Overview:
This 32-nucleotide RNA sequence from Flavobacterium sp. BFFFF2 belongs to the Rfam family "DUF805b RNA". Rfam classes the family as a cis-regulatory element.

RNA sequence: AAAGCGGAUCCGAAAAGCUCACAGAGUAGGGA
Number, nucleotide and partner (000 for none) at each position: 001a000002a000003a019004g018005c017006g000007g000008a000009u000010c030011c029012g000013a000014a000015a000016a000017g005018c004019u003020c000021a000022c000023a000024g000025a000026g000027u000028a000029g011030g010031g000032a000
Notes: The base pairs follow the family's consensus structure, which is taken from published work.